[Rfam]
RNA: bZIP non canonical Hac1/Xbp1 intron
RNA sequence: CACAACCUCGACGCGAUGCAACAUUCUGCCGCAAUGUUGUCCGACCUGCAGUGUCCGUCGAGCCCACGGGAGGGG
Number, nucleotide and partner (000 for none) at each position: 001c075002a000003c073004a000005a000006c070007c069008u000009c060010g059011a058012c057013g056014c000015g000016a000017u000018g000019c000020a038021a037022c036023a035024u034025u033026c000027u000028g000029c000030c000031g000032c000033a025034a024035u023036g022037u021038u020039g000040u000041c000042c000043g055044a054045c053046c000047u000048g000049c000050a000051g000052u000053g045054u044055c043056c013057g012058u011059c010060g009061a000062g000063c000064c000065c000066a000067c000068g000069g007070g006071a000072g000073g003074g000075g001